[Rfam]
RNA sequence: ACGGAGACAAAGUUUCCGUUCACUCCUCACACCAUAACCCGCUCUUACAUUGUAGGGGCGGAUU
Numbered sequence: 001a002c003g004g005a006g007a008c009a010a011a012g013u014u015u016c017c018g019u020u021c022a023c024u025c026c027u028c029a030c031a032c033c034a035u036a037a038c039c040c041g042c043u044c045u046u047a048c049a050u051u052g053u054a055g056g057g058g059c060g061g062a063u064u
Stems, first nucleotide, its partner, number of pairs: 001019008040060007
Shown here is a 64-nucleotide RNA from Geminocystis sp. NIES-3708, a member of the family "Cyanobacterial functional RNA 1". Rfam classes the family as a small RNA. A search with the family's covariance model found it, with a score of 39 bits. The literature on the family includes a 2005 paper in Genome Biol by Axmann et al., "Identification of cyanobacterial non-coding RNAs by comparative genome analysis".